[Rfam]
This 313-nucleotide RNA from Aquimarina amphilecti belongs to the Rfam family "Bacterial RNase P class A". Rfam describes the family as follows. Ribonuclease P (RNase P) is a ubiquitous endoribonuclease, found in archaea, bacteria and eukarya as well as chloroplasts and mitochondria. Its best characterised activity is the generation of mature 5'-ends of tRNAs by cleaving the 5'-leader elements of precursor-tRNAs. Cellular RNase Ps are ribonucleoproteins. RNA from bacterial RNase Ps retains its catalytic activity in the absence of the protein subunit, i.e. it is a ribozyme. The base pairs follow the family's consensus structure, which is taken from published work. It is annotated as a ribozyme. It scores 206 bits against the family's covariance model.

RNA sequence: CAAGCAGAUCACCUUAUCGCUGUCCGCUUUAUGCGGAGAGAGGAAAGUCCGGACACCGUAGUGCAGCAUAGCGGGUAACGCCCGUCCGUCGUGAGAUGAGGACAAGUGCAGCAGAAAGUAUGUACAGGUAAGGCUGUAGUGAAACCAGGUAAACUCUAUGCGGUGCAACGCCAUGUAUACCAACGCCUAAGGGUUGCGCGCCCAAUGUUGGAGGGUAGGCGGUUUGAUCUUGAUAGUAAUAUCAAGGCUAGAUAAAUGAUAAGGAGUCCGUCUUUGAUGGAUUACAGAAUCCGGCUUAUGAUCUGCUUUUUUU
Numbered sequence: 001c002a003a004g005c006a007g008a009u010c011a012c013c014u015u016a017u018c019g020c021u022g023u024c025c026g027c028u029u030u031a032u033g034c035g036g037a038g039a040g041a042g043g044a045a046a047g048u049c050c051g052g053a054c055a056c057c058g059u060a061g062u063g064c065a066g067c068a069u070a071g072c073g074g075g076u077a078a079c080g081c082c083c084g085u086c087c088g089u090c091g092u093g094a095g096a097u098g099a100g101g102a103c104a105a106g107u108g109c110a111g112c113a114g115a116a117a118g119u120a121u122g123u124a125c126a127g128g129u130a131a132g133g134c135u136g137u138a139g140u141g142a143a144a145c146c147a148g149g150u151a152a153a154c155u156c157u158a159u160g161c162g163g164u165g166c167a168a169c170g171c172c173a174u175g176u177a178u179a180c181c182a183a184c185g186c187c188u189a190a191g192g193g194u195u196g197c198g199c200g201c202c203c204a205a206u207g208u209u210g211g212a213g214g215g216u217a218g219g220c221g222g223u224u225u226g227a228u229c230u231u232g233a234u235a236g237u238a239a240u241a242u243c244a245a246g247g248c249u250a251g252a253u254a255a256a257u258g259a260u261a262a263g264g265a266g267u268c269c270g271u272c273u274u275u276g277a278u279g280g281a282u283u284a285c286a287g288a289a290u291c292c293g294g295c296u297u298a299u300g301a302u303c304u305g306c307u308u309u310u311u312u313u
Stems, first nucleotide, its partner, number of pairs: 002308010012264007020040002023037005045297003049294005054165004061199004066161005071085005086100001087098004101156002106154002108150002169221004180211005191203004228247008